[Rfam]
RNA sequence: AAGAGCUUCGAGCCAAUAAAGACUAAAAAGGUUGGCACAAGAACCAA
Numbered sequence: 001a002a003g004a005g006c007u008u009c010g011a012g013c014c015a016a017u018a019a020a021g022a023c024u025a026a027a028a029a030g031g032u033u034g035g036c037a038c039a040a041g042a043a044c045c046a047a
Base pairs, nucleotide, nucleotide: 007041008040010038012036013035014034015033016032017031
Dot-bracket structure: ......((.(.((((((.............)))))).).))......